[Rfam]
A member of the RNA family "NiCo (Nickel/Cobalt) riboswitch aptamer" from Clostridium sp. D5, 99 nucleotides long.
RNA sequence: ACAGUACAAACUGAACAGGUUAUGUUACAUAACAGGCCGUAACACAUAACCGGGCCGUCGGACGGCGGCAGCAGAUAAAAAGACAUCUGCGGGACAGUU
Numbered sequence: 001a002c003a004g005u006a007c008a009a010a011c012u013g014a015a016c017a018g019g020u021u022a023u024g025u026u027a028c029a030u031a032a033c034a035g036g037c038c039g040u041a042a043c044a045c046a047u048a049a050c051c052g053g054g055c056c057g058u059c060g061g062a063c064g065g066c067g068g069c070a071g072c073a074g075a076u077a078a079a080a081a082g083a084c085a086u087c088u089g090c091g092g093g094a095c096a097g098u099u
Stems, first nucleotide, its partner, number of pairs: 010098004016093001018051004023044005054069005071090006
A reference for the family is Furukawa et al. (2015), "Bacterial riboswitches cooperatively bind Ni(2+) or Co(2+) ions and control expression of heavy metal transporters", Mol Cell.